[Rfam]
RNA sequence: ACCGUGCAGUCGUGGCGGGCGUCGGGGUCCGCCAGGGCGUGCGCGCCGAAGUGCUCGCCGUCCGCGAGCACCGCGACGGCGGUCUCGCCGCCGUACUUGCCUUCGGAGGUCUGGCUGACCCGGCCGUGGGCGAUCAGAUGGAUCCGGUCCGCGCAGCUGCCACGUUCGACGAGGACCUCGCCCGCCGUGAAGUCGCGCUGCGCGCAGCGGUCGGCGAGUGCGCCGAGGACGUCCCGGUCCUCGAAUCCACGUAGGAAGGCCAGUUCACCGAGCCCUUGCGGAAGGACGCGGACGGUGGCGCCCUCCUGGACGAAGCCGACGCGCCCAUUGCCGAGGGUGUGGCGCAGCCGUCGGUUGACCCGGUAGACGCCGCCCUCGGCCUCGACCCAGGGCAGCAUCCGCAGCAGCCAGCGAGAGGUGAUCUCCUGCAUCUGCGGGGCCGACUUGGUGGUGGUGGCGAGGGUGCGGGCGGCGGCGGUACUCAGGGACUGUUGCGGCACGCCUG
Numbered sequence: 001a002c003c004g005u006g007c008a009g010u011c012g013u014g015g016c017g018g019g020c021g022u023c024g025g026g027g028u029c030c031g032c033c034a035g036g037g038c039g040u041g042c043g044c045g046c047c048g049a050a051g052u053g054c055u056c057g058c059c060g061u062c063c064g065c066g067a068g069c070a071c072c073g074c075g076a077c078g079g080c081g082g083u084c085u086c087g088c089c090g091c092c093g094u095a096c097u098u099g100c101c102u103u104c105g106g107a108g109g110u111c112u113g114g115c116u117g118a119c120c121c122g123g124c125c126g127u128g129g130g131c132g133a134u135c136a137g138a139u140g141g142a143u144c145c146g147g148u149c150c151g152c153g154c155a156g157c158u159g160c161c162a163c164g165u166u167c168g169a170c171g172a173g174g175a176c177c178u179c180g181c182c183c184g185c186c187g188u189g190a191a192g193u194c195g196c197g198c199u200g201c202g203c204g205c206a207g208c209g210g211u212c213g214g215c216g217a218g219u220g221c222g223c224c225g226a227g228g229a230c231g232u233c234c235c236g237g238u239c240c241u242c243g244a245a246u247c248c249a250c251g252u253a254g255g256a257a258g259g260c261c262a263g264u265u266c267a268c269c270g271a272g273c274c275c276u277u278g279c280g281g282a283a284g285g286a287c288g289c290g291g292a293c294g295g296u297g298g299c300g301c302c303c304u305c306c307u308g309g310a311c312g313a314a315g316c317c318g319a320c321g322c323g324c325c326c327a328u329u330g331c332c333g334a335g336g337g338u339g340u341g342g343c344g345c346a347g348c349c350g351u352c353g354g355u356u357g358a359c360c361c362g363g364u365a366g367a368c369g370c371c372g373c374c375c376u377c378g379g380c381c382u383c384g385a386c387c388c389a390g391g392g393c394a395g396c397a398u399c400c401g402c403a404g405c406a407g408c409c410a411g412c413g414a415g416a417g418g419u420g421a422u423c424u425c426c427u428g429c430a431u432c433u434g435c436g437g438g439g440c441c442g443a444c445u446u447g448g449u450g451g452u453g454g455u456g457g458c459g460a461g462g463g464u465g466c467g468g469g470c471g472g473c474g475g476c477g478g479u480a481c482u483c484a485g486g487g488a489c490u491g492u493u494g495c496g497g498c499a500c501g502c503c504u505g
Base pairs, nucleotide, nucleotide: 006387009386010385011384012383014381015380016379018325019324021322022319023318024317025316028313029312033309035307036306037305039303043301044300045299046298047297048296051230052229054227055226056225057224059222060221061220062108065105074099075098076097079094080093081092082091083090114219115218116217119214120213124209127206128203130201131200132199137194140193147188151186153185154184156182158180160174163171164170165169231293232292233291234290237287238286239285240284241283246280248278249277251275254273259266326339327338328337329336348378350374352372353371354370360366388428389427390426391425392424394422396420397419398418400415402413404412434473435472437470440467443464444462445461446460448458449457474504475503478498479497481496483494484493485492

Annotation:
The family of this 505-nucleotide RNA from Streptomyces scabiei is "Saccharopolyspora sRNA 350". For this family Rfam cites "Prediction and characterization of small non-coding RNAs related to secondary metabolites in Saccharopolyspora erythraea" (Liu et al., PLoS One, 2013). Rfam 15.1 lists 1,170 matches to the family in 705 species.